[Rfam]
RNA sequence: GCGAUGUGACGAUAGAAAUUCAAUGGUCUGUCAAUCCACUGAUCUAACAAUUUGAUGUUACAUUGAAGUUCCGACAGGUUCUGAUUGC
Numbered sequence: 001g002c003g004a005u006g007u008g009a010c011g012a013u014a015g016a017a018a019u020u021c022a023a024u025g026g027u028c029u030g031u032c033a034a035u036c037c038a039c040u041g042a043u044c045u046a047a048c049a050a051u052u053u054g055a056u057g058u059u060a061c062a063u064u065g066a067a068g069u070u071c072c073g074a075c076a077g078g079u080u081c082u083g084a085u086u087g088c
Base pairs, nucleotide, nucleotide: 001088002087003086004085

Small nucleolar RNA snoR14: an 88-nucleotide sequence from Durio zibethinus. On this family, see Brown et al., RNA 2001: "Multiple snoRNA gene clusters from Arabidopsis". Rfam classes the family as a C/D-box small nucleolar RNA.